[Rfam]
RNA: Small nucleolar RNA Z247
RNA sequence: CCCCUCCAUGACGAGGAGUUUACUUCAUUUAUUCUCAAUGGCCUUGAUGAGGACUAUGACUCUCUUGUUGAAAACGUCAACGGACGUGACAUGCUGAUGCCGCCUCGUGACCUCUACGCCCGCCUCCUCAGCAUGGAGC
Numbered sequence: 001c002c003c004c005u006c007c008a009u010g011a012c013g014a015g016g017a018g019u020u021u022a023c024u025u026c027a028u029u030u031a032u033u034c035u036c037a038a039u040g041g042c043c044u045u046g047a048u049g050a051g052g053a054c055u056a057u058g059a060c061u062c063u064c065u066u067g068u069u070g071a072a073a074a075c076g077u078c079a080a081c082g083g084a085c086g087u088g089a090c091a092u093g094c095u096g097a098u099g100c101c102g103c104c105u106c107g108u109g110a111c112c113u114c115u116a117c118g119c120c121c122g123c124c125u126c127c128u129c130a131g132c133a134u135g136g137a138g139c
Base pairs, nucleotide, nucleotide: 004138005137006136007135008134088108091105093103